[Rfam]
RNA: Nematode snoRNA ceN39
Nucleotides: 128
Stems, first nucleotide, its partner, number of pairs: 003053005011043002015040006022033004065120008076112003080106002083103008
Number, partner (000 for none) and nucleotide at each position: 001000u002000g003053g004052g005051c006050g007049g008000a009000u010000a011043g012042g013000a014000a015040c016039c017038a018037g019036g020035c021000a022033g023032c024031g025030c026000u027000u028000g029000u030025g031024u032023g033022u034000c035020g036019c037018u038017u039016g040015g041000g042012c043011c044000g045000a046000a047000a048000a049007c050006c051005g052004c053003c054000g055000a056000g057000a058000u059000g060000a061000u062000a063000u064000c065120g066119a067118u068117g069116u070115u071114u072113u073000a074000a075000a076112g077111g078110u079000c080106g081105u082000a083103u084102g085101u086100g087099c088098u089097a090096c091000u092000g093000u094000g095000u096090g097089u098088a099087g100086c101085a102084u103083g104000u105081a106080u107000a108000u109000u110078a111077c112076c113072g114071a115070a116069a117068u118067g119066u120065c121000g122000c123000a124000c125000a126000u127000u128000a